[Rfam]
RNA sequence: CGUUAGGCUUGACCGGGGAGCUUGGCGUGCCCUUCACCCGCAAUCGUCAAUAGCGGGGGUGACAGCAGGGGGCGGCAGAGUUGAAGGUCCAAGCCCGCAUAGCAACUAUGAGAUCUUGUCCUGCAGAGUCGGAGUUUGUGUGUCGAACAGCCGGAGGGUCGUAUCGCGCACAUUCAUCGGGGGAACCGGGCCAGGUCCUGACGGGAGCAGCCUUACUCUGUGCUACUGACGUUUGCGGGGUCGCAGGGUUGAGAAACGAAGCGGUCAACUUGGGACGGAUAUGAUGUCCACCUCUGUGGCCUAACA
Numbered sequence: 001c002g003u004u005a006g007g008c009u010u011g012a013c014c015g016g017g018g019a020g021c022u023u024g025g026c027g028u029g030c031c032c033u034u035c036a037c038c039c040g041c042a043a044u045c046g047u048c049a050a051u052a053g054c055g056g057g058g059g060u061g062a063c064a065g066c067a068g069g070g071g072g073c074g075g076c077a078g079a080g081u082u083g084a085a086g087g088u089c090c091a092a093g094c095c096c097g098c099a100u101a102g103c104a105a106c107u108a109u110g111a112g113a114u115c116u117u118g119u120c121c122u123g124c125a126g127a128g129u130c131g132g133a134g135u136u137u138g139u140g141u142g143u144c145g146a147a148c149a150g151c152c153g154g155a156g157g158g159u160c161g162u163a164u165c166g167c168g169c170a171c172a173u174u175c176a177u178c179g180g181g182g183g184a185a186c187c188g189g190g191c192c193a194g195g196u197c198c199u200g201a202c203g204g205g206a207g208c209a210g211c212c213u214u215a216c217u218c219u220g221u222g223c224u225a226c227u228g229a230c231g232u233u234u235g236c237g238g239g240g241u242c243g244c245a246g247g248g249u250u251g252a253g254a255a256a257c258g259a260a261g262c263g264g265u266c267a268a269c270u271u272g273g274g275a276c277g278g279a280u281a282u283g284a285u286g287u288c289c290a291c292c293u294c295u296g297u298g299g300c301c302u303a304a305c306a
Stems, first nucleotide, its partner, number of pairs: 002305008010062001012060003015033004020028002037057005066296006074288004079282001083280001086276001088274005093266001095264004100259001102257001106253002112250008120239008128230005133224002137172007145164001147162002150159003178220005188213004196205003
This 306-nucleotide sequence from Candidatus Methanoplasma termitum belongs to the Rfam family "Archaeal signal recognition particle RNA". Lineage of the source: Archaea > Thermoplasmatota > Methanomassiliicoccales > Methanomassiliicoccaceae > Candidatus Methanoplasma. A reference for the family is Hainzl et al. (2011), "Structural basis of signal-sequence recognition by the signal recognition particle", Nat Struct Mol Biol. Clan: SRP clan. Pairs were carried over by alignment from the consensus structure, which is taken from published work.